Background: This 113-nucleotide sequence from Arenibacter certesii belongs to the Rfam family "SAM riboswitch aptamer (S box leader)". NCBI's taxonomy places the organism under Bacteria, Bacteroidota, Flavobacteriia, Flavobacteriaceae, Arenibacter.

[Rfam]
RNA sequence: UUGUUAUCAAGAAAGGUGGAGGGAAUAGACCCUUUGAAGCCUUAGCAACCCUUUGACCCCAUGUCAAUGAAGGUGCUACAUUCUACCGAAACUAAAAAUUGGACCCAUAAGCG
Numbered sequence: 001u002u003g004u005u006a007u008c009a010a011g012a013a014a015g016g017u018g019g020a021g022g023g024a025a026u027a028g029a030c031c032c033u034u035u036g037a038a039g040c041c042u043u044a045g046c047a048a049c050c051c052u053u054u055g056a057c058c059c060c061a062u063g064u065c066a067a068u069g070a071a072g073g074u075g076c077u078a079c080a081u082u083c084u085a086c087c088g089a090a091a092c093u094a095a096a097a098a099u100u101g102g103a104c105c106c107a108u109a110a111g112c113g
Base pairs, nucleotide, nucleotide: 001113004110005109006108007107013043014042015041016040017039021032022031023030026085027084028083029082044077045076046075047074049073050072051069053067054066055065056064086102087101088100089099